[Rfam]
RNA sequence: AUACCUAUGAGGCAAAUUUUACGAAAGUAAAAGACGCAAAGCCACGGGUCUAAAGUGUUUCCAUCCACCAUGACAGCCGGGUUCCCAAG
Numbered sequence: 001a002u003a004c005c006u007a008u009g010a011g012g013c014a015a016a017u018u019u020u021a022c023g024a025a026a027g028u029a030a031a032a033g034a035c036g037c038a039a040a041g042c043c044a045c046g047g048g049u050c051u052a053a054a055g056u057g058u059u060u061c062c063a064u065c066c067a068c069c070a071u072g073a074c075a076g077c078c079g080g081g082u083u084c085c086c087a088a089g
Stems, first nucleotide, its partner, number of pairs: 012037002017032006040083004045079003048074003055068003
Dot-bracket structure: ...........((...((((((....))))))...))..((((.((((((....(((........)))...)))..)))))))......

Rfam assigns this 89-nucleotide RNA sequence from Peribacillus loiseleuriae to the family "c-di-GMP-I riboswitch aptamer".
Rfam describes the family as follows. GEMM was predicted in a large-scale screen for bacterial structured RNA regulatory elements.
The organism belongs to Peribacillus, within Bacteria.